Background: Rfam assigns this 180-nucleotide sequence from Bacillus sp. to the family "Lysine riboswitch aptamer".
[Rfam]
RNA sequence: AGUGAAGAUAGAGGUGCGAACUUCAUCAGUAAAAGCUUGGAGAAGAAUGAGCUUCAAUGAAAAGCUUUGAAAGGGAACGUUCGCCGAAGUGAAGAAAAACUCAUUUUUUUCUUUGCUGGUCCUGCAUUUAAGAGAUGCCGGAUUGUCAAGGCGGUGCCGCCUUGGAGAGCUAUCUCACUG
Numbered sequence: 001a002g003u004g005a006a007g008a009u010a011g012a013g014g015u016g017c018g019a020a021c022u023u024c025a026u027c028a029g030u031a032a033a034a035g036c037u038u039g040g041a042g043a044a045g046a047a048u049g050a051g052c053u054u055c056a057a058u059g060a061a062a063a064g065c066u067u068u069g070a071a072a073g074g075g076a077a078c079g080u081u082c083g084c085c086g087a088a089g090u091g092a093a094g095a096a097a098a099a100c101u102c103a104u105u106u107u108u109u110u111c112u113u114u115g116c117u118g119g120u121c122c123u124g125c126a127u128u129u130a131a132g133a134g135a136u137g138c139c140g141g142a143u144u145g146u147c148a149a150g151g152c153g154g155u156g157c158c159g160c161c162u163u164g165g166a167g168a169g170c171u172a173u174c175u176c177a178c179u180g
Stems, first nucleotide, its partner, number of pairs: 006175006016084006022077003032068007088117012118144005124138005146165007
Its family is annotated with lysine biosynthetic process in the Gene Ontology.
Pairs were carried over by alignment from the consensus structure, which is taken from published work.